[Rfam]
RNA sequence: UGCCAGCGGAUCAGGCGUAAAAUAGUCGACCCCAGAGAUGCAAACUCGUAAAAAAGCGUA
Numbered sequence: 001u002g003c004c005a006g007c008g009g010a011u012c013a014g015g016c017g018u019a020a021a022a023u024a025g026u027c028g029a030c031c032c033c034a035g036a037g038a039u040g041c042a043a044a045c046u047c048g049u050a051a052a053a054a055a056g057c058g059u060a
Stems, first nucleotide, its partner, number of pairs: 001017004009027003013023001035047003
Source information:
Shown here is a 60-nucleotide RNA, a member of the family "GP20-b RNA". The sequence is in the family's curated seed alignment. The family's RNA type in Rfam is cis-regulatory element. Pairs were carried over by alignment from the consensus structure, which is taken from published work.